[Rfam]
RNA sequence: UGGUCAUUACCGAGGCAUUUAGAAUGCAGUUCUCAUUUGCUGUGGACAUGACCAUAAAAAAUGAUUCCCACUAGGUUUUCUUCCUGCUACUUGGUUAGCAUUGAGCCUAUUUGGGAACAUUU
Numbered sequence: 001u002g003g004u005c006a007u008u009a010c011c012g013a014g015g016c017a018u019u020u021a022g023a024a025u026g027c028a029g030u031u032c033u034c035a036u037u038u039g040c041u042g043u044g045g046a047c048a049u050g051a052c053c054a055u056a057a058a059a060a061a062u063g064a065u066u067c068c069c070a071c072u073a074g075g076u077u078u079u080c081u082u083c084c085u086g087c088u089a090c091u092u093g094g095u096u097a098g099c100a101u102u103g104a105g106c107c108u109a110u111u112u113g114g115g116a117a118c119a120u121u122u
Stems, first nucleotide, its partner, number of pairs: 003052005010045003026040004067115004074107004085100003
A member of the RNA family "Small nucleolar RNA SNORA32" from Bison bison, 122 nucleotides long. The family's consensus secondary structure was predicted with RNAfold. The source organism's lineage runs through Eukaryota, Deuterostomia, Teleostomi, Laurasiatheria and Bison bison. It is annotated as an H/ACA-box small nucleolar RNA.